RNA sequence: GGGGCUGAUUCUGGAUUCGACGGGAUUCACGAACUCUUAGGUGCAUGCCGAGGUGAGGUAGGCCUCGUAAAAAAGCCUCAAUUAAAUAGUCGCAAACGACGAAACUUACGCAAUCGCUGCCUAAUAAGCAGUAGAUAGCUCUUCCCCUCACGCAUGCCUGUAAGCUGAGACUCUGGAAGAUCACCCCUAACAGGAUCGCGUCGCGUCUUCGCCUGGAGACAAAACGUUAAAACCAAUCAGGCUCGCCCGACGAUAGCCUGCCAUUCGGCGCUCAUAGGGUUAACUAAAUGAAUGUGCUAAGCAUGUAGUACCGACGAUGUAGGUUUUUCGGACGCGGGUUCAACUCCCGCCAGCUCCACCA
Number, nucleotide and partner (000 for none) at each position: 001g357002g356003g355004g354005c353006u352007g351008a000009u000010u000011c000012u000013g000014g000015a000016u000017u000018c000019g000020a000021c330022g329023g328024g327025a326026u000027u000028c323029a000030c000031g000032a000033a000034c000035u317036c316037u000038u314039a000040g312041g311042u310043g000044c305045a304046u303047g302048c301049c067050g066051a065052g064053g063054u080055g079056a078057g077058g076059u075060a000061g000062g000063c053064c052065u051066c050067g049068u000069a000070a000071a000072a000073a000074a000075g059076c058077c057078u056079c055080a054081a000082u000083u000084a000085a000086a000087u000088a000089g000090u000091c000092g000093c000094a000095a000096a000097c000098g000099a000100c000101g000102a000103a000104a000105c000106u000107u000108a000109c000110g000111c000112a000113a136114u135115c134116g132117c131118u130119g129120c000121c000122u000123a000124a000125u000126a000127a000128g000129c119130a118131g117132u116133a000134g115135a114136u113137a000138g000139c000140u180141c179142u178143u177144c176145c175146c000147c169148u168149c167150a166151c000152g165153c164154a000155u162156g000157c194158c193159u192160g191161u190162a155163a000164g153165c152166u150167g149168a148169g147170a000171c000172u000173c000174u000175g145176g144177a143178a142179g141180a140181u000182c000183a000184c000185c000186c000187c000188u000189a000190a161191c160192a159193g158194g157195a000196u000197c000198g000199c226200g225201u224202c000203g000204c000205g000206u000207c000208u000209u000210c000211g242212c241213c240214u239215g238216g000217a000218g000219a000220c000221a000222a000223a000224a201225c200226g199227u000228u000229a000230a000231a000232a000233c000234c000235a000236a000237u000238c215239a214240g213241g212242c211243u000244c000245g280246c279247c278248c277249g000250a275251c000252g273253a272254u000255a000256g269257c268258c267259u000260g297261c296262c000263a000264u292265u291266c290267g258268g257269c256270g000271c000272u253273c252274a000275u250276a000277g248278g247279g246280u245281u000282a000283a000284c000285u000286a000287a000288a000289u000290g266291a265292a264293u000294g000295u000296g261297c260298u000299a000300a000301g048302c047303a046304u045305g044306u000307a000308g000309u000310a042311c041312c040313g000314a038315c000316g036317a035318u000319g000320u000321a000322g000323g028324u000325u000326u025327u024328u023329c022330g021331g000332a000333c000334g350335c349336g348337g347338g346339u000340u000341c000342a000343a000344c000345u000346c338347c337348c336349g335350c334351c007352a006353g005354c004355u003356c002357c001358a000359c000360c000361a000
RNA: transfer-messenger RNA